[Rfam]
RNA sequence: GUUGCUUCUUCUACUGGAAGAAUGGCCUCUAUUGGGCCAUUUCUCAGUGAGAAGCAUACAUUUAAACUUGGCCGGUAUUAAACAGCAUGAUGCUUUCUAUUGUUGCAUUGUGUUACCUGUCUCCUGGUAAAUGU
Numbered sequence: 001g002u003u004g005c006u007u008c009u010u011c012u013a014c015u016g017g018a019a020g021a022a023u024g025g026c027c028u029c030u031a032u033u034g035g036g037c038c039a040u041u042u043c044u045c046a047g048u049g050a051g052a053a054g055c056a057u058a059c060a061u062u063u064a065a066a067c068u069u070g071g072c073c074g075g076u077a078u079u080a081a082a083c084a085g086c087a088u089g090a091u092g093c094u095u096u097c098u099a100u101u102g103u104u105g106c107a108u109u110g111u112g113u114u115a116c117c118u119g120u121c122u123c124c125u126g127g128u129a130a131a132u133g134u
Stems, first nucleotide, its partner, number of pairs: 003056006019044004023039005071128005077122001084114003088110005